[Rfam]
RNA sequence: CAAGUUUUGUCGCUUAAUCUUAACAAAAGAACGGGGGAACCAUUUUUGUGGAAUACCAUUCCACUAGGGGUGAAUUCAAUUUGAAAGGGCAAGUGUUUCCUAGUCCUAACCCGACAGCUAACCUCGUCAGCGUCUUUGAGGGAACAG
Numbered sequence: 001c002a003a004g005u006u007u008u009g010u011c012g013c014u015u016a017a018u019c020u021u022a023a024c025a026a027a028a029g030a031a032c033g034g035g036g037g038a039a040c041c042a043u044u045u046u047u048g049u050g051g052a053a054u055a056c057c058a059u060u061c062c063a064c065u066a067g068g069g070g071u072g073a074a075u076u077c078a079a080u081u082u083g084a085a086a087g088g089g090c091a092a093g094u095g096u097u098u099c100c101u102a103g104u105c106c107u108a109a110c111c112c113g114a115c116a117g118c119u120a121a122c123c124u125c126g127u128c129a130g131c132g133u134c135u136u137u138g139a140g141g142g143a144a145c146a147g
Stems, first nucleotide, its partner, number of pairs: 011132004018030003031127006041067001068112003076084003087106004